Shown here is a 100-nucleotide RNA from Paenibacillus selenitireducens, a member of the family "Purine riboswitch aptamer".
[Rfam]
RNA sequence: AAAUAUAAGAUGAAUGAGAUUCGUAUAUCCUCGACAAUAUGGGUUGAGGGUUUCUACAAGGAGCCGUAAAUUCCUGUCUACGAAUGGGGCAUUGCUAUAC
Numbered sequence: 001a002a003a004u005a006u007a008a009g010a011u012g013a014a015u016g017a018g019a020u021u022c023g024u025a026u027a028u029c030c031u032c033g034a035c036a037a038u039a040u041g042g043g044u045u046g047a048g049g050g051u052u053u054c055u056a057c058a059a060g061g062a063g064c065c066g067u068a069a070a071u072u073c074c075u076g077u078c079u080a081c082g083a084a085u086g087g088g089g090c091a092u093u094g095c096u097a098u099a100c
Base pairs, nucleotide, nucleotide: 019085020084021083022082023081024080025079029049030048031047032046033045034044035043059075060074061073062072063071
Riboswitches are metabolite binding domains within certain messenger RNAs that serve as precision sensors for their corresponding targets.
A search with the family's covariance model found it, with a score of 73 bits.